[Rfam]
Source information:
The record is a 167-nucleotide sequence from methanotrophic endosymbiont of Bathymodiolus azoricus, which matches "Group II catalytic intron D1-D4-3" in Rfam. A search with the family's covariance model found it, with a score of 122 bits.
RNA sequence: AACCCUGCGAGGUGUUGUGAGAAGGAAGCCCGAGCGCAAAACUGCAAGCUUACGUACAGAAACAUCAUAGAAGGCUGAGUCUCAGGGGUGAGUUAGCCAAAGAUAACGAAACCCAUAGGUUCGCGAGAUACAGUAAAUGAUGAGGUUGUGCAGUGAAAGUUCACGUU
Dot-bracket structure: (((.((....)).)))...........(.(.....((...(((((((((((...........((((((.....(((..(((((..((((..((((........))))...))))..........)))))..)))..))))))))))).))))))....))....).)